[Rfam]
RNA sequence: UGAAGCGUGACCGACACGGGGAAGGAAGGCUAGGAGAAACCUGCGAGCUGAUGGACAAGAAUCGCAUAGAAGGCCGACACGGCACGUCGAGGUGGCACAAGCAAGCGACGAAUAGGAGCGCGGUAGACCUCAAGAACUCGUCUGGUUUAGUUACCGUGGAGGUAAAUGCGGCGGUUGUGCAGGGAAGCAUCGUGCC
Numbered sequence: 001u002g003a004a005g006c007g008u009g010a011c012c013g014a015c016a017c018g019g020g021g022a023a024g025g026a027a028g029g030c031u032a033g034g035a036g037a038a039a040c041c042u043g044c045g046a047g048c049u050g051a052u053g054g055a056c057a058a059g060a061a062u063c064g065c066a067u068a069g070a071a072g073g074c075c076g077a078c079a080c081g082g083c084a085c086g087u088c089g090a091g092g093u094g095g096c097a098c099a100a101g102c103a104a105g106c107g108a109c110g111a112a113u114a115g116g117a118g119c120g121c122g123g124u125a126g127a128c129c130u131c132a133a134g135a136a137c138u139c140g141u142c143u144g145g146u147u148u149a150g151u152u153a154c155c156g157u158g159g160a161g162g163u164a165a166a167u168g169c170g171g172c173g174g175u176u177g178u179g180c181a182g183g184g185a186a187g188c189a190u191c192g193u194g195c196c
Base pairs, nucleotide, nucleotide: 001016002015005012028196029195030194036188040183041182042181043180044179045178046176047175048174049173050172062171063170064169065168066167067166073163074162075161078158079157080156081155082154086137087136091131092130094128
About this RNA: The family of this 196-nucleotide RNA sequence from Haloferula rosea is "Group II catalytic intron D1-D4-3". Taxonomically the source falls in Haloferula (Bacteria, Pseudomonadati, Verrucomicrobiia, Verrucomicrobiaceae).